The record is a 134-nucleotide sequence from Delphinapterus leucas, which matches "Small nucleolar RNA SNORA70" in Rfam.
Its family is annotated with RNA processing and nucleolus in the Gene Ontology.
The family has 43 seed sequences and 5,173 matches in Rfam 15.1.
Rfam classes the family as an H/ACA-box small nucleolar RNA.
Taxonomically the source falls in Delphinapterus (Eukaryota, Metazoa, Craniata, Teleostomi).
The match comes from Rfam's covariance-model search (104 bits).
About the family: snoRNA U70 seems to be exclusive to mammals and is a member of the H/ACA class of snoRNA which contain H (ANANNA) and ACA box motifs. H/ACA box snoRNAs are involved in the conversion of uridines to pseudouridines (5-ribosyluracil) a constituent of structural RNAs (transfer, ribosomal, small nuclear, and small nucleolar).
[Rfam]
RNA sequence: AUAACCCAGUUAAGCCGACUGUGCUCUUUUCCCCACGGGGACCCGGUGUCCAGUAGCUGCAAGCAACAGCCUCCUCGGUAGUGUAGACAGCCUGUCGCCUGUAUGGGUUGCCCUAAGGGACCUUGGAUUCAGCC
Numbered sequence: 001a002u003a004a005c006c007c008a009g010u011u012a013a014g015c016c017g018a019c020u021g022u023g024c025u026c027u028u029u030u031c032c033c034c035a036c037g038g039g040g041a042c043c044c045g046g047u048g049u050c051c052a053g054u055a056g057c058u059g060c061a062a063g064c065a066a067c068a069g070c071c072u073c074c075u076c077g078g079u080a081g082u083g084u085a086g087a088c089a090g091c092c093u094g095u096c097g098c099c100u101g102u103a104u105g106g107g108u109u110g111c112c113c114u115a116a117g118g119g120a121c122c123u124u125g126g127a128u129u130c131a132g133c134c
Stems, first nucleotide, its partner, number of pairs: 002052001004049001018047004025040003077122003088110006